[Rfam]
mir-205 microRNA precursor family: a 60-nucleotide RNA sequence from Ictalurus punctatus. For this family Rfam cites "Vertebrate microRNA genes" (Lim et al., Science, 2003).

RNA sequence: UCCUUCAUUCCACCGGAGUCUGUGUAGUUGUUCAAUCAGAUUUCAGUGGUGUGAAGUGUA
Numbered sequence: 001u002c003c004u005u006c007a008u009u010c011c012a013c014c015g016g017a018g019u020c021u022g023u024g025u026a027g028u029u030g031u032u033c034a035a036u037c038a039g040a041u042u043u044c045a046g047u048g049g050u051g052u053g054a055a056g057u058g059u060a
Stems, first nucleotide, its partner, number of pairs: 003056006011048003015044004020039003
Dot-bracket structure: ..((((((..(((.((((.(((..............))).)))).)))..))))))....